[Rfam]
RNA sequence: AACUGUCAAUGAUGAUUUUUGUUAUGAAACAUUGGGAAUCUCUCUGAAAAAGAGUGAAAGAGUACUUUUUUCUGAGCAGUU
Numbered sequence: 001a002a003c004u005g006u007c008a009a010u011g012a013u014g015a016u017u018u019u020u021g022u023u024a025u026g027a028a029a030c031a032u033u034g035g036g037a038a039u040c041u042c043u044c045u046g047a048a049a050a051a052g053a054g055u056g057a058a059a060g061a062g063u064a065c066u067u068u069u070u071u072c073u074g075a076g077c078a079g080u081u
Stems, first nucleotide, its partner, number of pairs: 001081005007076001
RNA: Small nucleolar RNA SNORD79